[Rfam]
RNA sequence: AUCCUCUCUGGCCUCUUUUGGCUAAGAUCAUGUGUAGUAUCUGUUCUUGACAUAUUGAGCUAUGUCACAACCCUACGGGGUUCUAAGCUUAAUAAAUCUUUCCUCGCCCGAGUCACCUCUAUGGCUUGCCACAAGUGAUCUCACGAUGUCGUUGGCAUUACACUACCGCCUCCUGAUGUCAGGGUAC
Numbered sequence: 001a002u003c004c005u006c007u008c009u010g011g012c013c014u015c016u017u018u019u020g021g022c023u024a025a026g027a028u029c030a031u032g033u034g035u036a037g038u039a040u041c042u043g044u045u046c047u048u049g050a051c052a053u054a055u056u057g058a059g060c061u062a063u064g065u066c067a068c069a070a071c072c073c074u075a076c077g078g079g080g081u082u083c084u085a086a087g088c089u090u091a092a093u094a095a096a097u098c099u100u101u102c103c104u105c106g107c108c109c110g111a112g113u114c115a116c117c118u119c120u121a122u123g124g125c126u127u128g129c130c131a132c133a134a135g136u137g138a139u140c141u142c143a144c145g146a147u148g149u150c151g152u153u154g155g156c157a158u159u160a161c162a163c164u165a166c167c168g169c170c171u172c173c174u175g176a177u178g179u180c181a182g183g184g185u186a187c
Stems, first nucleotide, its partner, number of pairs: 007027003010023004048067006069082005110142003113138004122131003145180006151173001154170003

Rfam assigns this 187-nucleotide sequence from Vanrija humicola to the family "U2 spliceosomal RNA". Taxonomically the source falls in Vanrija (Eukaryota, Dikarya, Trichosporonales, Trichosporonaceae). Pairs were carried over by alignment from the consensus structure, which is taken from published work.